Shown here is a 103-nucleotide sequence from Pseudogracilibacillus auburnensis, a member of the family "Bacillaceae-1 RNA".
Pairs were carried over by alignment from the consensus structure, which is taken from published work.
The family's RNA type in Rfam is small RNA.

[Rfam]
RNA sequence: UCUUACAGUUCACUGGCUAAAGACGCGACGUCCUGGGACUCCGCUAAAUGCUCGUCCCACCGAAAAGCAUUGUCGCAACGCCAGUACUAGCACGUCCUGUGCG
Numbered sequence: 001u002c003u004u005a006c007a008g009u010u011c012a013c014u015g016g017c018u019a020a021a022g023a024c025g026c027g028a029c030g031u032c033c034u035g036g037g038a039c040u041c042c043g044c045u046a047a048a049u050g051c052u053c054g055u056c057c058c059a060c061c062g063a064a065a066a067g068c069a070u071u072g073u074c075g076c077a078a079c080g081c082c083a084g085u086a087c088u089a090g091c092a093c094g095u096c097c098u099g100u101g102c103g
Stems, first nucleotide, its partner, number of pairs: 012085006025076005090102004